Shown here is a 100-nucleotide RNA sequence from Panicum virgatum, a member of the family "Small nucleolar RNA snoR99". Rfam classes the family as an H/ACA-box small nucleolar RNA. The base pairs follow the family's consensus structure, which was predicted with WAR.
[Rfam]
RNA sequence: GUGCCUGUGGGAUGAACAGGUCCCAACAUUUACUUCAAUUUUUUCACUUUGUCAGCUAAUUGACACUCAUUUUUAGCUGAUCAUUAAGAUUGGAAAAUGC
Numbered sequence: 001g002u003g004c005c006u007g008u009g010g011g012a013u014g015a016a017c018a019g020g021u022c023c024c025a026a027c028a029u030u031u032a033c034u035u036c037a038a039u040u041u042u043u044u045c046a047c048u049u050u051g052u053c054a055g056c057u058a059a060u061u062g063a064c065a066c067u068c069a070u071u072u073u074u075a076g077c078u079g080a081u082c083a084u085u086a087a088g089a090u091u092g093g094a095a096a097a098u099g100c
Base pairs, nucleotide, nucleotide: 034094035093036092037091038090039089051081052080053079054078055077056076057075058074
Dot-bracket structure: .................................((((((...........((((((((...............)))))))).......))))))......